[Rfam]
RNA sequence: AGCAAAAUGAGGAGGUCAUACAAUCUGAAGUAUUUGAUGUUGUAUAUACAUUAUUGCUCUUCAAAGUUCUCUGAUUGCU
Numbered sequence: 001a002g003c004a005a006a007a008u009g010a011g012g013a014g015g016u017c018a019u020a021c022a023a024u025c026u027g028a029a030g031u032a033u034u035u036g037a038u039g040u041u042g043u044a045u046a047u048a049c050a051u052u053a054u055u056g057c058u059c060u061u062c063a064a065a066g067u068u069c070u071c072u073g074a075u076u077g078c079u
Stems, first nucleotide, its partner, number of pairs: 001079005
Dot-bracket structure: (((((.....................................................................)))))